[Rfam]
Rfam assigns this 110-nucleotide sequence to the family "Small nucleolar RNA snoR17". It is one of the family's seed sequences. Gene Ontology terms of the family: nucleolus and RNA processing.

RNA sequence: CAUAGUGAUGAAUUAUAUCACAAUUGUCACUACCUCUGAGGCAUAUUCUUGAUUCGUUUUUUUUUUUUAGAUUUUGGUUUCUAUCACCUUACUUCUUUAGGAGCCUGAUG
Numbered sequence: 001c002a003u004a005g006u007g008a009u010g011a012a013u014u015a016u017a018u019c020a021c022a023a024u025u026g027u028c029a030c031u032a033c034c035u036c037u038g039a040g041g042c043a044u045a046u047u048c049u050u051g052a053u054u055c056g057u058u059u060u061u062u063u064u065u066u067u068u069a070g071a072u073u074u075u076g077g078u079u080u081c082u083a084u085c086a087c088c089u090u091a092c093u094u095c096u097u098u099a100g101g102a103g104c105c106u107g108a109u110g
Stems, first nucleotide, its partner, number of pairs: 004031006080101004